[Rfam]
RNA sequence: CUUGCUACUGGGUCGCCUGUAGCAGG
Numbered sequence: 001c002u003u004g005c006u007a008c009u010g011g012g013u014c015g016c017c018u019g020u021a022g023c024a025g026g
Base pairs, nucleotide, nucleotide: 001026002025003024004023005022006021007020008019010017011016
RNA: L25-Gammaproteobacteria ribosomal protein leader